[Rfam]
RNA sequence: AGGCCCAGAGAGAGAGGCAGGGUCUGAUCCGUAGCCUCUAUGACAGCUGUUGAUCAGCCAUUGCCUCUCUCUUUUUCUUCG
Numbered sequence: 001a002g003g004c005c006c007a008g009a010g011a012g013a014g015a016g017g018c019a020g021g022g023u024c025u026g027a028u029c030c031g032u033a034g035c036c037u038c039u040a041u042g043a044c045a046g047c048u049g050u051u052g053a054u055c056a057g058c059c060a061u062u063g064c065c066u067c068u069c070u071c072u073u074u075u076u077c078u079u080c081g
Base pairs, nucleotide, nucleotide: 008073009072010071011070012069013068014067015066016065017064018063019062020061022059024057025056026055027054028053029052032049033048034047035046
RNA: mir-574 microRNA precursor family
Organism: Myotis davidii